[Rfam]
Shown here is a 76-nucleotide sequence from Ameiurus melas, a member of the family "mir-7563 microRNA precursor family". Pairs were carried over by alignment from the consensus structure, which was predicted with RNAalifold. NCBI's taxonomy places the organism under Eukaryota, Teleostei, Osteoglossocephalai, Otophysi, Ameiurus.
RNA sequence: ACCGCGUACUUACCUACUGUAUAAUAGCUGAAAUAUGUGUAUAUCUCCUACUAUACAGCAGGUAAGUACGCGGUUC
Number, nucleotide and partner (000 for none) at each position: 001a074002c073003c072004g071005c070006g069007u068008a067009c066010u065011u064012a063013c062014c061015u060016a000017c058018u057019g056020u055021a054022u053023a052024a000025u050026a049027g048028c000029u000030g045031a044032a000033a042034u041035a040036u000037g000038u000039g000040u035041a034042u033043a000044u031045c030046u000047c000048c027049u026050a025051c000052u023053a022054u021055a020056c019057a018058g017059c000060a015061g014062g013063u012064a011065a010066g009067u008068a007069c006070g005071c004072g003073g002074u001075u000076c000